[Rfam]
RNA sequence: UCAGUGGUACAUGAUGACUUAAUCUUUUUUCCCCAUCUUAUCGGCAAUGCUGAUAAAACAUGCGUUCUAGCCAGAUGGUCUGAUUCCACUGA
Numbered sequence: 001u002c003a004g005u006g007g008u009a010c011a012u013g014a015u016g017a018c019u020u021a022a023u024c025u026u027u028u029u030u031c032c033c034c035a036u037c038u039u040a041u042c043g044g045c046a047a048u049g050c051u052g053a054u055a056a057a058a059c060a061u062g063c064g065u066u067c068u069a070g071c072c073a074g075a076u077g078g079u080c081u082g083a084u085u086c087c088a089c090u091g092a
Stems, first nucleotide, its partner, number of pairs: 001092007009084001
Shown here is a 92-nucleotide RNA sequence from Podarcis lilfordi, a member of the family "Small nucleolar SNORD12/SNORD106". The family is grouped with related families in Rfam's "SNORD12 clan". Gene Ontology terms of the family: nucleolus and RNA processing. NCBI's taxonomy places the organism under Eukaryota, Chordata, Vertebrata, Dipnotetrapodomorpha, Podarcis. A search with the family's covariance model found it, with a score of 62 bits.